[Rfam]
RNA sequence: AUAAUUAUACUUCCGUAUAGUCACAGUCCGAGCGUGAUCAAACCGUCGCAGGCAAUGAGUACGGCCCGCCAUCAGAAUGGAGGGAGGUGAAAGUCCUAUGA
Numbered sequence: 001a002u003a004a005u006u007a008u009a010c011u012u013c014c015g016u017a018u019a020g021u022c023a024c025a026g027u028c029c030g031a032g033c034g035u036g037a038u039c040a041a042a043c044c045g046u047c048g049c050a051g052g053c054a055a056u057g058a059g060u061a062c063g064g065c066c067c068g069c070c071a072u073c074a075g076a077a078u079g080g081a082g083g084g085a086g087g088u089g090a091a092a093g094u095c096c097u098a099u100g101a
Stems, first nucleotide, its partner, number of pairs: 012098001013064006065084003069080003085097003

The family of this 101-nucleotide sequence from Proteiniclasticum sediminis is "pemK RNA". NCBI's taxonomy places the organism under Bacteria, Bacillati, Clostridia, Clostridiaceae, Proteiniclasticum. The family's RNA type in Rfam is cis-regulatory element.